Shown here is a 90-nucleotide RNA sequence from Populus trichocarpa, a member of the family "small nucleolar RNA snoR114". Gene Ontology terms of the family: RNA processing and nucleolus. The family's consensus secondary structure was predicted with RNAalifold.

[Rfam]
RNA sequence: AAGCUGUGAGGAAAUCUGUGCUCAUUGUGAUGAUAGGGUCUAUCACUACCGUCCGAUCUCCAUCCGACGACAAAGAGUGCAUCUGAGCUU
Numbered sequence: 001a002a003g004c005u006g007u008g009a010g011g012a013a014a015u016c017u018g019u020g021c022u023c024a025u026u027g028u029g030a031u032g033a034u035a036g037g038g039u040c041u042a043u044c045a046c047u048a049c050c051g052u053c054c055g056a057u058c059u060c061c062a063u064c065c066g067a068c069g070a071c072a073a074a075g076a077g078u079g080c081a082u083c084u085g086a087g088c089u090u
Stems, first nucleotide, its partner, number of pairs: 001090004